[Rfam]
RNA sequence: CUCUGGCUGGCGCCGAAUCCCGACUCGGUCGGGAACCGGGGACCCACCCUCACUGGGGUGAAUCCGGCCGCGUGCCGGUAGGGCAUCUCCACGCCCGAACCCGUCAGCUAACCCGGUAGGUGUGAUGGAGAGGACAU
Numbered sequence: 001c002u003c004u005g006g007c008u009g010g011c012g013c014c015g016a017a018u019c020c021c022g023a024c025u026c027g028g029u030c031g032g033g034a035a036c037c038g039g040g041g042a043c044c045c046a047c048c049c050u051c052a053c054u055g056g057g058g059u060g061a062a063u064c065c066g067g068c069c070g071c072g073u074g075c076c077g078g079u080a081g082g083g084c085a086u087c088u089c090c091a092c093g094c095c096c097g098a099a100c101c102c103g104u105c106a107g108c109u110a111a112c113c114c115g116g117u118a119g120g121u122g123u124g125a126u127g128g129a130g131a132g133g134a135c136a137u
Base pairs, nucleotide, nucleotide: 011122012121013120014119018034019033020032021031022030035117036116037115038114039113040112045055046054056102057101058100064078065077066076067075081096082095083094084093

Shown here is a 137-nucleotide RNA sequence from Nonomuraea longispora, a member of the family "c-di-AMP riboswitch aptamer (ydaO/yuaA leader)". The match comes from Rfam's covariance-model search (98 bits). Lineage of the source: Bacteria > Bacillati > Actinomycetes > Streptosporangiales > Nonomuraea. This family represents a conserved RNA structure found upstream of the ydaO and yuaA genes in Bacillus subtilis and related genes in other bacteria.